RNA: M-box riboswitch aptamer (ykoK leader)
RNA sequence: UAACUGAACAGUUAGGUGAGGCUCCUAUAUUGGAUAUACGCUAUUGCCCAGAACAUCGACAGAUGCCAAUGGGUCAAACAGAAACAGUCGGAGUAAGGCUUUUUCCAGAUAGCUUUGUAUUUUUUUUGCAAAACGCCAUAUAGUGUUAAAACUGAGCGAGUGUUCAAUGU
Numbered sequence: 001u002a003a004c005u006g007a008a009c010a011g012u013u014a015g016g017u018g019a020g021g022c023u024c025c026u027a028u029a030u031u032g033g034a035u036a037u038a039c040g041c042u043a044u045u046g047c048c049c050a051g052a053a054c055a056u057c058g059a060c061a062g063a064u065g066c067c068a069a070u071g072g073g074u075c076a077a078a079c080a081g082a083a084a085c086a087g088u089c090g091g092a093g094u095a096a097g098g099c100u101u102u103u104u105c106c107a108g109a110u111a112g113c114u115u116u117g118u119a120u121u122u123u124u125u126u127u128g129c130a131a132a133a134c135g136c137c138a139u140a141u142a143g144u145g146u147u148a149a150a151a152c153u154g155a156g157c158g159a160g161u162g163u164u165c166a167a168u169g170u
Stems, first nucleotide, its partner, number of pairs: 005166006011157002013096001015153003020147003025143006032137002040113005046074005054065004081105004087099003115131005